[Rfam]
RNA sequence: CACCGCUUGGUGAAAAUAUUGCCGGGAGGACAGGGUUUAGUAGGCCUCGGCUCGAAAGACCUUGCAGGCAAACAAGGAG
Dot-bracket structure: ((((....)))).......((((.......(((((((.....(((....).))....)))))))..)))).........
The family of this 79-nucleotide RNA sequence is "RT-18 RNA".